[Rfam]
RNA: Small nucleolar RNA snoR109
RNA sequence: UGGCUGUAGCUAGAGAAAGAAGCGGGAAGCUAACUGGUCGGCUUGCUCUUCAAUAUCUCACAGGCAUUCCGCUUACCAAACUUCUCUCAUAA
Numbered sequence: 001u002g003g004c005u006g007u008a009g010c011u012a013g014a015g016a017a018a019g020a021a022g023c024g025g026g027a028a029g030c031u032a033a034c035u036g037g038u039c040g041g042c043u044u045g046c047u048c049u050u051c052a053a054u055a056u057c058u059c060a061c062a063g064g065c066a067u068u069c070c071g072c073u074u075a076c077c078a079a080a081c082u083u084c085u086c087u088c089a090u091a092a
Base pairs, nucleotide, nucleotide: 024086025085026084027083028082029081031079036073037072038071040069041068042064043063044062045061